[Rfam]
RNA sequence: GGGUCGAUGAUGAGAACCUUAUAUGGUCUGAAGGGAGGUGACAACUUAAAAAUCAUGCUCAAUAGGAUUACACUGAGGCCC
Numbered sequence: 001g002g003g004u005c006g007a008u009g010a011u012g013a014g015a016a017c018c019u020u021a022u023a024u025g026g027u028c029u030g031a032a033g034g035g036a037g038g039u040g041a042c043a044a045c046u047u048a049a050a051a052a053u054c055a056u057g058c059u060c061a062a063u064a065g066g067a068u069u070a071c072a073c074u075g076a077g078g079c080c081c
Stems, first nucleotide, its partner, number of pairs: 001081004005075002008072002
Dot-bracket structure: ((((((.((.............................................................)).))..))))
The family of this 81-nucleotide RNA sequence from Prolemur simus is "Small nucleolar RNA SNORD115".
Pairs were carried over by alignment from the consensus structure, which was predicted with PFOLD.
The family's RNA type in Rfam is C/D-box small nucleolar RNA.
Lineage of the source: Eukaryota > Craniata > Eutheria > Primates > Prolemur.
Rfam links the family to the GO terms nucleolus and RNA processing.
The literature on the family includes a 2000 paper in Proc Natl Acad Sci U S A by Cavaille et al., "Identification of brain-specific and imprinted small nucleolar RNA genes exhibiting an unusual genomic organization".